mir-9/mir-79 microRNA precursor family: an 81-nucleotide RNA from Panagrellus redivivus.
A reference for the family is Sempere et al. (2003), "Temporal regulation of microRNA expression in Drosophila melanogaster mediated by hormonal signals and broad-Complex gene activity", Dev Biol.
Its family is annotated with RISC complex and miRNA-mediated post-transcriptional gene silencing in the Gene Ontology.
Taxonomically the source falls in Panagrellus (Eukaryota, Eumetazoa, Protostomia, Tylenchina).

RNA sequence: ACUUGCUCAACUUUGGUGAUUUAGCUGUAUGAGUUUUACUAGACUUACAUCAUAAAGCUAGGUUACCAGAGCUGAGCGAGG
Numbered sequence: 001a002c003u004u005g006c007u008c009a010a011c012u013u014u015g016g017u018g019a020u021u022u023a024g025c026u027g028u029a030u031g032a033g034u035u036u037u038a039c040u041a042g043a044c045u046u047a048c049a050u051c052a053u054a055a056a057g058c059u060a061g062g063u064u065a066c067c068a069g070a071g072c073u074g075a076g077c078g079a080g081g
Stems, first nucleotide, its partner, number of pairs: 002080004007075003011071016028054005